[Rfam]
RNA: Bacillaceae-1 RNA
Organism: Siminovitchia fortis
RNA sequence: CGGCGAGGUACGCCGCCUCAGAUCGCCACAUCCUGUGGCUUCGGUGGCACUAGGACGUCCUGUCCG
Numbered sequence: 001c002g003g004c005g006a007g008g009u010a011c012g013c014c015g016c017c018u019c020a021g022a023u024c025g026c027c028a029c030a031u032c033c034u035g036u037g038g039c040u041u042c043g044g045u046g047g048c049a050c051u052a053g054g055a056c057g058u059c060c061u062g063u064c065c066g
Base pairs, nucleotide, nucleotide: 012048013047014046015045016044017043025039026038027037028036029035053065054064055063056062